The record is a 194-nucleotide sequence from Tetrapisispora phaffii, which matches "Small nucleolar RNA snR190" in Rfam. Rfam links the family to the GO terms nucleolus and RNA processing. The family's RNA type in Rfam is C/D-box small nucleolar RNA. A search with the family's covariance model found it, with a score of 99 bits. The family is grouped with related families in Rfam's "SNORD12 clan". Lineage of the source: Eukaryota > Ascomycota > Saccharomycotina > Saccharomycetes > Tetrapisispora phaffii.
RNA sequence: GGCUUUGAUGAAAAUGUUGAUUCUUCUUUCCCAGUCCGAUUCGACCAUGACGACAAGGGAUUCUAUCACGUUCUUUAUCUUCUUUUGUUAUGAAAGGUUUUUGGGAUUUAUUUCAAAAACAUUUUAUUUUGAAUUUAGAUAGUUUUAUGGAACUUUUCUUGCCAAGUAUUAAAUACUUAAACAAGUUCUGAGCC
Numbered sequence: 001g002g003c004u005u006u007g008a009u010g011a012a013a014a015u016g017u018u019g020a021u022u023c024u025u026c027u028u029u030c031c032c033a034g035u036c037c038g039a040u041u042c043g044a045c046c047a048u049g050a051c052g053a054c055a056a057g058g059g060a061u062u063c064u065a066u067c068a069c070g071u072u073c074u075u076u077a078u079c080u081u082c083u084u085u086u087g088u089u090a091u092g093a094a095a096g097g098u099u100u101u102u103g104g105g106a107u108u109u110a111u112u113u114c115a116a117a118a119a120c121a122u123u124u125u126a127u128u129u130u131g132a133a134u135u136u137a138g139a140u141a142g143u144u145u146u147a148u149g150g151a152a153c154u155u156u157u158c159u160u161g162c163c164a165a166g167u168a169u170u171a172a173a174u175a176c177u178u179a180a181a182c183a184a185g186u187u188c189u190g191a192g193c194c
Stems, first nucleotide, its partner, number of pairs: 001194003007188002009185001019061001021059005034051003066151002069149003076141005084133004090127006099118008159184003164178005